[Rfam]
RNA sequence: UGAGAGAGUAAGGCCAGACUAGAAGUGUUCAUGACACGGCUGUCAGAUUCCAACAAAUCUGUGAAUUCUGCU
Numbered sequence: 001u002g003a004g005a006g007a008g009u010a011a012g013g014c015c016a017g018a019c020u021a022g023a024a025g026u027g028u029u030c031a032u033g034a035c036a037c038g039g040c041u042g043u044c045a046g047a048u049u050c051c052a053a054c055a056a057a058u059c060u061g062u063g064a065a066u067u068c069u070g071c072u
Base pairs, nucleotide, nucleotide: 013040014039015038018072020070021069022068023067024066025037026036027035044061045060046059047058048057049056
About this RNA
Rfam assigns this 72-nucleotide RNA sequence from Crocodylus porosus to the family "Mammalian CPEB3 ribozyme". The match comes from Rfam's covariance-model search (56 bits). Rfam's curators write: The mammalian CPEB3 ribozyme is a self cleaving RNA located in the second intron of the CPEB3 gene which belongs to a family of genes regulating messenger RNA polyadenylation. This ribozyme is highly conserved and found only in mammals. The CPEB3 ribozyme is structurally and biochemically related to the human hepatitis delta virus (HDV) ribozyme and the HDV ribozyme is proposed to have arisen from the human transcriptome.